Notes:
The record is a 353-nucleotide RNA from Jannaschia helgolandensis, which matches "Alphaproteobacteria transfer-messenger RNA" in Rfam. Clan: tRNA clan. The source organism's lineage runs through Bacteria, Pseudomonadati, Pseudomonadota, Alphaproteobacteria and Jannaschia.
[Rfam]
RNA sequence: UGACUUGAAUCGGACCACGGAACAGACUAUGUUCACUUUGUCUUCUUCGGAGGACUAUGGCGAUAAACGCGCCCGUAAUAAGCGGAUCGGACCCGGGGGCGGUACCCGGCGACUCCACCAUACAUCCCGUAUUGGGGGAUCAUGGGGUCGAAACAGGAUCGACGGACGUCUAAAGGGGUAAUGCUUUCGCUCGGUGAGUUACCACCGUUAUCGGUACAAAAUGUACAGUUGCCAAUAUCAACCGUGCUCCGGUCGCCGUCGCAGCGUAAGCUGCGUCGAGACCGAAACUUAAGCCCUUGCGCCUAGCAGCGUAAGGCGGGGUUCGCAGGCACCUGGCAACAGAAGCCUGCACU
Numbered sequence: 001u002g003a004c005u006u007g008a009a010u011c012g013g014a015c016c017a018c019g020g021a022a023c024a025g026a027c028u029a030u031g032u033u034c035a036c037u038u039u040g041u042c043u044u045c046u047u048c049g050g051a052g053g054a055c056u057a058u059g060g061c062g063a064u065a066a067a068c069g070c071g072c073c074c075g076u077a078a079u080a081a082g083c084g085g086a087u088c089g090g091a092c093c094c095g096g097g098g099g100c101g102g103u104a105c106c107c108g109g110c111g112a113c114u115c116c117a118c119c120a121u122a123c124a125u126c127c128c129g130u131a132u133u134g135g136g137g138g139a140u141c142a143u144g145g146g147g148u149c150g151a152a153a154c155a156g157g158a159u160c161g162a163c164g165g166a167c168g169u170c171u172a173a174a175g176g177g178g179u180a181a182u183g184c185u186u187u188c189g190c191u192c193g194g195u196g197a198g199u200u201a202c203c204a205c206c207g208u209u210a211u212c213g214g215u216a217c218a219a220a221a222u223g224u225a226c227a228g229u230u231g232c233c234a235a236u237a238u239c240a241a242c243c244g245u246g247c248u249c250c251g252g253u254c255g256c257c258g259u260c261g262c263a264g265c266g267u268a269a270g271c272u273g274c275g276u277c278g279a280g281a282c283c284g285a286a287a288c289u290u291a292a293g294c295c296c297u298u299g300c301g302c303c304u305a306g307c308a309g310c311g312u313a314a315g316g317c318g319g320g321g322u323u324c325g326c327a328g329g330c331a332c333c334u335g336g337c338a339a340c341a342g343a344a345g346c347c348u349g350c351a352c353u
Base pairs, nucleotide, nucleotide: 040055041054042053043052044051059191060190061189062188063187069184070183071179072178073177074176083168084167087165088164089163093109094108095107096106097105110150111149112148113147114146115145116144192207193206194205195204198217199216201215202214203213319334320333321332322331325350326349327348328347329346330345
Dot-bracket structure: .......................................(((((......)))))...(((((.....((((((........((..(((...(((((.......)))))(((((((...........................)))))))............))).)).......))))...))..)))))((((..[[.[[[)))).....]]]]].....................................................................................................[[[[..((((((]]]]..........))))))...
The base pairs follow the family's consensus structure, which is taken from published work.